This 79-nucleotide RNA sequence belongs to the Rfam family "L4-Archaeoglobi ribosomal protein leades". Rfam classes the family as a cis-regulatory leader. Pairs were carried over by alignment from the consensus structure, which is taken from published work.
RNA sequence: CUGAUCGAGACGCUGGGCCAACGCCAGUGCAGCGCGCCCGGUUCCGGGGAGAAUGUCCCCGGAAGCGUCGAAGUGUCAG
Numbered sequence: 001c002u003g004a005u006c007g008a009g010a011c012g013c014u015g016g017g018c019c020a021a022c023g024c025c026a027g028u029g030c031a032g033c034g035c036g037c038c039c040g041g042u043u044c045c046g047g048g049g050a051g052a053a054u055g056u057c058c059c060c061g062g063a064a065g066c067g068u069c070g071a072a073g074u075g076u077c078a079g
Stems, first nucleotide, its partner, number of pairs: 001079005009069005014040004022034003042064009